[Rfam]
Rfam assigns this 85-nucleotide RNA from Hordeum vulgare to the family "mir-877 microRNA precursor family". It scores 47 bits against the family's covariance model. Taxonomically the source falls in Hordeum vulgare (Eukaryota, Viridiplantae, Tracheophyta, Euphyllophyta).
RNA sequence: AAGAAGGAGAAGGAGAAGGAGGAGAAGGAGAAGAAGAAGGAGAAGGAGUCCUCCUUCUCCUUCUCCUUCUUCUUCCUCCUUCUUC
Numbered sequence: 001a002a003g004a005a006g007g008a009g010a011a012g013g014a015g016a017a018g019g020a021g022g023a024g025a026a027g028g029a030g031a032a033g034a035a036g037a038a039g040g041a042g043a044a045g046g047a048g049u050c051c052u053c054c055u056u057c058u059c060c061u062u063c064u065c066c067u068u069c070u071u072c073u074u075c076c077u078c079c080u081u082c083u084u085c
Base pairs, nucleotide, nucleotide: 004081005080006079007078008077009076012075013074015072017070018069019068020067021066022065023064024063025062026061028059036057037056038055039054040053041052042051044049
Pairs were carried over by alignment from the consensus structure, which was predicted with RNAalifold. The literature on the family includes a 2010 paper in BMC Genomics by Linsen et al., "Small RNA expression and strain specificity in the rat". Gene Ontology terms of the family: miRNA-mediated post-transcriptional gene silencing and RISC complex. The family has 8 seed sequences and 186 matches in Rfam 15.1.